[Rfam]
RNA sequence: GUUGCAAGUUUAAGGCUAGAGCAGAAGUGCUCAUGGUGCAGUCCUGUGAGAGUUUAAAAAAUCUUUGAAUUCUUCU
Number, nucleotide and partner (000 for none) at each position: 001g000002u000003u000004g000005c000006a000007a000008g000009u000010u000011u000012a000013a000014g043015g042016c041017u040018a000019g000020a076021g075022c000023a073024g072025a071026a070027g039028u038029g037030c000031u000032c000033a000034u000035g000036g000037u029038g028039c027040a017041g016042u015043c014044c000045u000046g000047u000048g065049a064050g063051a062052g000053u060054u059055u000056a000057a000058a000059a054060a053061a000062u051063c050064u049065u048066u000067g000068a000069a000070u026071u025072c024073u023074u000075c021076u020
Record summary:
Rfam assigns this 76-nucleotide RNA from Alligator mississippiensis to the family "Mammalian CPEB3 ribozyme". The family's consensus secondary structure is taken from published work. Lineage of the source: Eukaryota > Vertebrata > Sauropsida > Crocodylia > Alligator. From the family's description: The mammalian CPEB3 ribozyme is a self cleaving RNA located in the second intron of the CPEB3 gene which belongs to a family of genes regulating messenger RNA polyadenylation. It scores 37 bits against the family's covariance model.